A member of the RNA family "5' ureB small RNA" from Tolypocladium paradoxum, 294 nucleotides long. Taxonomically the source falls in Tolypocladium (Eukaryota, Opisthokonta, saccharomyceta, Pezizomycotina). It scores 76 bits against the family's covariance model.
RNA sequence: CUCCUGCGCCUGCUGCGGACAUAUAAAGUGAACGUGCGUGUCGAUGCCCCCCGCCGUGACGAUCUUGCCCUCGCCCGCCACGACGUCGGUGCAGCUGCCGACGACCAUGCCCGGCGUCACGCCGUCCAUGACGUCGGGGCUGCCCGCCUUGCCGAUGCCGACGAUGAGGCCGCCCCUGAUGCCGAUGUCGGCUUUGUAGAUGCCCGUCCAGUCGACGACGAGCGCGUUGGUCACCACCACGUCGAGCGAGUCGGCGUCGGCGCGGCCCGUCGCCUGGCCCAUGCCCUCGCGCAG
Numbered sequence: 001c002u003c004c005u006g007c008g009c010c011u012g013c014u015g016c017g018g019a020c021a022u023a024u025a026a027a028g029u030g031a032a033c034g035u036g037c038g039u040g041u042c043g044a045u046g047c048c049c050c051c052c053g054c055c056g057u058g059a060c061g062a063u064c065u066u067g068c069c070c071u072c073g074c075c076c077g078c079c080a081c082g083a084c085g086u087c088g089g090u091g092c093a094g095c096u097g098c099c100g101a102c103g104a105c106c107a108u109g110c111c112c113g114g115c116g117u118c119a120c121g122c123c124g125u126c127c128a129u130g131a132c133g134u135c136g137g138g139g140c141u142g143c144c145c146g147c148c149u150u151g152c153c154g155a156u157g158c159c160g161a162c163g164a165u166g167a168g169g170c171c172g173c174c175c176c177u178g179a180u181g182c183c184g185a186u187g188u189c190g191g192c193u194u195u196g197u198a199g200a201u202g203c204c205c206g207u208c209c210a211g212u213c214g215a216c217g218a219c220g221a222g223c224g225c226g227u228u229g230g231u232c233a234c235c236a237c238c239a240c241g242u243c244g245a246g247c248g249a250g251u252c253g254g255c256g257u258c259g260g261c262g263c264g265g266c267c268c269g270u271c272g273c274c275u276g277g278c279c280c281a282u283g284c285c286c287u288c289g290c291g292c293a294g
Stems, first nucleotide, its partner, number of pairs: 001294002005291004011163002014160002017075002021071001030051001034048001036047004056068003077152001080149001082147001091143005098138002100135003106130004112124001114122002169278004176272001178271004182265002191225002194222002205214002228259003236251001240248001